This 81-nucleotide RNA sequence from Anser brachyrhynchus belongs to the Rfam family "Small nucleolar RNA SNORD103/SNORD85". The organism belongs to Anser, within Eukaryota. For this family Rfam cites "Identification of 13 novel human modification guide RNAs" (Vitali et al., Nucleic Acids Res, 2003).
[Rfam]
RNA sequence: UCUGGCGAUGACGACACACUUGCCCUCACUGAGAACGUUGUUCAGUAAUGAGAGCCUCACCGAGUACUCGGCUGAGCCAGA
Numbered sequence: 001u002c003u004g005g006c007g008a009u010g011a012c013g014a015c016a017c018a019c020u021u022g023c024c025c026u027c028a029c030u031g032a033g034a035a036c037g038u039u040g041u042u043c044a045g046u047a048a049u050g051a052g053a054g055c056c057u058c059a060c061c062g063a064g065u066a067c068u069c070g071g072c073u074g075a076g077c078c079a080g081a
Base pairs, nucleotide, nucleotide: 001081002080003079004078005077006076